[Rfam]
RNA: R2 RNA element
Organism: Drosophila persimilis
Nucleotides: 193
Base pairs, nucleotide, nucleotide: 040066041065042064045061073191074190075189076188095187096186097185099182100181101180107138108137109136110135111134117129118128119127120126121125140165141164142163143162144161145160
Number, partner (000 for none) and nucleotide at each position: 001000u002000u003000u004000u005000a006000g007000c008000u009000c010000c011000g012000u013000u014000g015000u016000u017000g018000a019000a020000u021000u022000u023000u024000c025000c026000a027000u028000a029000g030000g031000u032000u033000u034000a035000u036000u037000u038000g039000c040066u041065a042064c043000c044000u045061u046000u047000a048000c049000u050000u051000a052000u053000u054000u055000u056000c057000a058000u059000u060000u061045g062000u063000a064042g065041u066040a067000u068000u069000u070000u071000u072000u073191g074190c075189u076188u077000a078000u079000u080000u081000u082000u083000a084000a085000a086000u087000g088000c089000a090000u091000a092000a093000a094000a095187u096186g097185g098000a099182g100181g101180u102000g103000u104000u105000u106000a107138g108137u109136c110135c111134g112000u113000a114000g115000g116000a117129g118128u119127a120126a121125u122000u123000g124000a125121a126120u127119u128118a129117c130000g131000a132000a133000u134111c135110g136109g137108g138107c139000a140165u141164a142163u143162c144161u145160u146000u147000a148000g149000c150000g151000c152000c153000g154000g155000c156000g157000c158000u159000a160145a161144a162143g163142a164141u165140a166000u167000c168000u169000u170000u171000g172000g173000a174000a175000g176000a177000u178000u179000c180101a181100c182099c183000g184000g185097c186096c187095a188076a189075g190074g191073u192000c193000c